[Rfam]
Nucleotides: 266
Stems, first nucleotide, its partner, number of pairs: 003265004009058003012030006019023001035055005064260005074251001077248002080245002084241006093234002097228001100225003105221002107218003116212003120208004124201006130192002133190005139182005149174004157166003
Number, partner (000 for none) and nucleotide at each position: 001000c002000a003265g004264c005263a006262c007000u008000a009058g010057a011056c012030g013029g014028g015027g016026u017025a018000g019023u020000a021000g022000c023019g024000g025017u026016g027015c028014c029013c030012u031000g032000u033000a034000a035055c036054c037053u038052a039051c040000a041000a042000u043000c044000c045000g046000c047000u048000a049000u050000a051039g052038u053037a054036g055035g056011g057010u058009u059000g060000a061000a062000u063000u064260c065259c066258c067257a068256g069000a070000u071000u072000g073000a074251g075000a076000c077248u078247u079000a080245u081244u082000g083000a084241u085240a086239g087238c088237u089236g090000a091000g092000a093234u094233g095000c096000g097228c098000u099000u100225a101224a102223u103000a104000a105221g106220u107218g108217g109216u110000g111000u112000u113000g114000a115000c116212g117211a118210a119000u120208c121207g122206g123205u124201c125200u126199u127198a128197u129196g130192c131191a132000a133190u134189a135188g136187g137186a138000a139182g140181c141180u142179g143178u144000g145000a146000a147000c148000c149174a150173u151172g152171u153000c154000a155000g156000g157166u158165c159164c160000g161000g162000a163000a164159g165158g166157a167000a168000g169000c170000a171152g172151c173150a174149u175000u176000a177000a178143g179142c180141a181140g182139u183000g184000c185000c186137u187136c188135c189134u190133a191131u192130g193000u194000g195000c196129c197128g198127u199126a200125a201124g202000g203000u204000a205123g206122c207121c208120g209000u210118u211117u212116c213000u214000g215000a216109g217108c218107u219000a220106a221105c222000u223102g224101u225100u226000u227000c228097g229000a230000a231000a232000g233094c234093a235000a236089c237088a238087g239086c240085u241084a242000a243000a244081g245080a246000u247078a248077a249000a250000c251074c252000g253000a254000u255000a256068c257067u258066g259065g260064g261000u262006g263005u264004g265003c266000g
A member of the RNA family "Bacterial large signal recognition particle RNA" from Helcococcus kunzii, 266 nucleotides long. Rfam describes the family as follows. The signal recognition particle (SRP) is a universally conserved ribonucleoprotein involved in the co-translational targeting of proteins to membranes. A search with the family's covariance model found it, with a score of 179 bits. The literature on the family includes a 2003 paper in Nucleic Acids Res by Rosenblad et al., "SRPDB: Signal Recognition Particle Database". Rfam classes the family as a non-coding RNA gene. Rfam links the family to the GO terms SRP-dependent cotranslational protein targeting to membrane, signal sequence recognition and signal recognition particle, plasma membrane targeting. The source organism's lineage runs through Bacteria, Bacillota, Tissierellia, Helcococcus and Helcococcus kunzii.